Rfam assigns this 79-nucleotide sequence from Medicago truncatula to the family "MIR5269 microRNA precursor family".
The match comes from Rfam's covariance-model search (66 bits).
Its family is annotated with RISC complex and miRNA-mediated post-transcriptional gene silencing in the Gene Ontology.
The family's consensus secondary structure was predicted with RNAalifold.
Taxonomically the source falls in Medicago (Eukaryota, Tracheophyta, Spermatophyta, Fabaceae).
RNA sequence: UUGGAUUAAAUCAUUAUAAGUCUACAUUUUGAAAAUUGAAGUUACACAAAGUAGUGGGACAUACAUUGAUUUUAUCUAA
Numbered sequence: 001u002u003g004g005a006u007u008a009a010a011u012c013a014u015u016a017u018a019a020g021u022c023u024a025c026a027u028u029u030u031g032a033a034a035a036u037u038g039a040a041g042u043u044a045c046a047c048a049a050a051g052u053a054g055u056g057g058g059a060c061a062u063a064c065a066u067u068g069a070u071u072u073u074a075u076c077u078a079a
Base pairs, nucleotide, nucleotide: 001079002078003077004076005075006074008072009071010070011069012068013067015065017063018062022057023056024055026052027051028050029049030048031047